Small nucleolar RNA SNORD35: an 86-nucleotide RNA sequence from Myotis lucifugus.
[Rfam]
RNA sequence: GGCAGAUGAUGGUUUUUUCUCACGAUGGUCUGCGGAUGCCACCUGGGCACUGCCGAAAAUGCCAAUGGCUUAGCUGAUGCCAGGAG
Number, nucleotide and partner (000 for none) at each position: 001g081002g080003c079004a078005g000006a000007u000008g000009a000010u000011g000012g000013u000014u000015u000016u000017u000018u000019c000020u000021c000022a000023c000024g000025a000026u000027g000028g000029u000030c000031u000032g000033c000034g000035g000036a000037u000038g000039c000040c000041a000042c000043c000044u000045g000046g000047g000048c000049a000050c000051u000052g000053c000054c000055g000056a000057a000058a000059a000060u000061g000062c000063c000064a000065a000066u000067g000068g000069c000070u000071u000072a000073g000074c000075u000076g000077a000078u004079g003080c002081c001082a000083g000084g000085a000086g000
Rfam 15.1 lists 1,842 matches to the family in 634 species. U35 is a C/D box snoRNA located in intron 6 of ribosomal protein L13A and intron 3 of ribosomal protein S11 in humans and at homologous positions in mouse and chicken ribosomal protein genes. U35 guides the methylation of 2'-O-ribose sites in 28S rRNA. The family's RNA type in Rfam is C/D-box small nucleolar RNA. The match comes from Rfam's covariance-model search (85 bits). Pairs were carried over by alignment from the consensus structure, which was predicted with PFOLD.